[Rfam]
Description: Rfam assigns this 107-nucleotide RNA from Virgibacillus phasianinus to the family "SAM riboswitch aptamer (S box leader)". Rfam links the family to the GO term regulation of gene expression. Taxonomically the source falls in Virgibacillus (Bacteria, Bacillati, Bacilli, Bacillaceae).
RNA sequence: UUCUUAUCAAGAGAGACUGAGGGACCAGGCCCAGUGAUGUCUCAGCAACCAGCUGUUUAGGCCACGGUGCUAAUUCCAAUAGGUAAUUACUUCCUAGAAGAUAAGAA
Numbered sequence: 001u002u003c004u005u006a007u008c009a010a011g012a013g014a015g016a017c018u019g020a021g022g023g024a025c026c027a028g029g030c031c032c033a034g035u036g037a038u039g040u041c042u043c044a045g046c047a048a049c050c051a052g053c054u055g056u057u058u059a060g061g062c063c064a065c066g067g068u069g070c071u072a073a074u075u076c077c078a079a080u081a082g083g084u085a086a087u088u089a090c091u092u093c094c095u096a097g098a099a100g101a102u103a104a105g106a107a
Base pairs, nucleotide, nucleotide: 001107002106003105004104005103006102007101008100013043014042015041016040017039021032022031023030028077029076044071045070046069047068049067050066052062053061054060075099080096081095082094083093085091